[Rfam]
RNA sequence: UGCGUUGAACCUUUUGUAGGUCGCAAGUAACUCUGAAAGAGUGAAGCAACGGGAA
Number, nucleotide and partner (000 for none) at each position: 001u000002g000003c051004g050005u049006u048007g047008a000009a021010c020011c019012u018013u000014u000015u000016g000017u000018a012019g011020g010021u009022c000023g000024c052025a000026a000027g000028u000029a000030a042031c041032u040033c039034u038035g000036a000037a000038a034039g033040a032041g031042u030043g000044a000045a000046g000047c007048a006049a005050c004051g003052g024053g000054a000055a000
The record is a 55-nucleotide RNA, which matches "Glutamine riboswitch aptamer (glnA leader)" in Rfam. On this family, see Ren et al., Cell Rep 2015: "Structural and Dynamic Basis for Low-Affinity, High-Selectivity Binding of L-Glutamine by the Glutamine Riboswitch".